[Rfam]
RNA sequence: GGAGCCGUGGUGUAGUGGUCAACAUGUCUGCCUGUCACGCAGAAGAUCGCGGGUUCAAGUCCCGUCGGUUCCG
Numbered sequence: 001g002g003a004g005c006c007g008u009g010g011u012g013u014a015g016u017g018g019u020c021a022a023c024a025u026g027u028c029u030g031c032c033u034g035u036c037a038c039g040c041a042g043a044a045g046a047u048c049g050c051g052g053g054u055u056c057a058a059g060u061c062c063c064g065u066c067g068g069u070u071c072c073g
Base pairs, nucleotide, nucleotide: 001072002071003070004069005068006067007066010025011024012023013022027043028042029041030040031039049065050064051063052062053061
Rfam assigns this 73-nucleotide RNA from Tengunoibacter tsumagoiensis to the family "tRNA". The family's RNA type in Rfam is transfer RNA. Taxonomically the source falls in Tengunoibacter (Bacteria, Bacillati, Chloroflexota, Ktedonobacteria). From the family's description: Transfer RNA (tRNA) molecules are approximately 80 nucleotides in length.